[Rfam]
RNA sequence: ACCCUCCAGAUCCCUUUCCCAUCAGAUCUGCCUACCGAUCUUGUGGUCGAAAAAGGAGGAAAAACAACAUUCAAACUGGUCAUGGCCUCAUUGUGGGUGCAGUCCUGCCAUGGGAGGGGCUGGUUUGAAGACAGC
Numbered sequence: 001a002c003c004c005u006c007c008a009g010a011u012c013c014c015u016u017u018c019c020c021a022u023c024a025g026a027u028c029u030g031c032c033u034a035c036c037g038a039u040c041u042u043g044u045g046g047u048c049g050a051a052a053a054a055g056g057a058g059g060a061a062a063a064a065c066a067a068c069a070u071u072c073a074a075a076c077u078g079g080u081c082a083u084g085g086c087c088u089c090a091u092u093g094u095g096g097g098u099g100c101a102g103u104c105c106u107g108c109c110a111u112g113g114g115a116g117g118g119g120c121u122g123g124u125u126u127g128a129a130g131a132c133a134g135c
Stems, first nucleotide, its partner, number of pairs: 003059005019046003023043001025040004076123006
RNA: Small nucleolar RNA SNORA61